[Rfam]
RNA: Bacillaceae-1 RNA
Organism: Bacillus sp. V5-8f
RNA sequence: AAUUAAGGAACGUCGACUAACUUCUGCCACGUCCUGUGGCAACGUCGACGUCAGCACAUCCUCUGCA
Numbered sequence: 001a002a003u004u005a006a007g008g009a010a011c012g013u014c015g016a017c018u019a020a021c022u023u024c025u026g027c028c029a030c031g032u033c034c035u036g037u038g039g040c041a042a043c044g045u046c047g048a049c050g051u052c053a054g055c056a057c058a059u060c061c062u063c064u065g066c067a
Base pairs, nucleotide, nucleotide: 011050012049013048014047015046016045017044026040027039028038029037030036054066055065056064